Annotation: A member of the RNA family "Clostridiales-1 RNA" from Eubacterium sp. CAG:161, 172 nucleotides long. NCBI's taxonomy places the organism under Bacteria, Bacillati, Bacillota, Eubacteriales, Eubacterium. The match comes from Rfam's covariance-model search (121 bits).
[Rfam]
RNA sequence: UGAUACCAGGGGCAAAAGGGCAAACACCCGACGCAAGCCUGCUUGUGGGAGGAUUUUUGACCUUGGGGUCCGCCAAAACAUGAGUAAGUAGCCAUUUUUCAAAGAAAAAUGAGUGGAUUACGAAUGUUUUGGUGGAUUGCGGGAGCACGUAGUGCGAAGUAAUCCGGUAUCA
Dot-bracket structure: (((((((...(((...(((.((((.(.((..((((((....))))).)..)).).)))).)))....)))...((((((((..((((...((((((((((...)))))))).))...))))..))))))))..(((((((....((((...))))...))))))))))))))
Numbered sequence: 001u002g003a004u005a006c007c008a009g010g011g012g013c014a015a016a017a018g019g020g021c022a023a024a025c026a027c028c029c030g031a032c033g034c035a036a037g038c039c040u041g042c043u044u045g046u047g048g049g050a051g052g053a054u055u056u057u058u059g060a061c062c063u064u065g066g067g068g069u070c071c072g073c074c075a076a077a078a079c080a081u082g083a084g085u086a087a088g089u090a091g092c093c094a095u096u097u098u099u100c101a102a103a104g105a106a107a108a109a110u111g112a113g114u115g116g117a118u119u120a121c122g123a124a125u126g127u128u129u130u131g132g133u134g135g136a137u138u139g140c141g142g143g144a145g146c147a148c149g150u151a152g153u154g155c156g157a158a159g160u161a162a163u164c165c166g167g168u169a170u171c172a
Stems, first nucleotide, its partner, number of pairs: 001172007011070003017063003021059004026054001028052002032048001033046005074131008084121004091114002093111008134165007145155004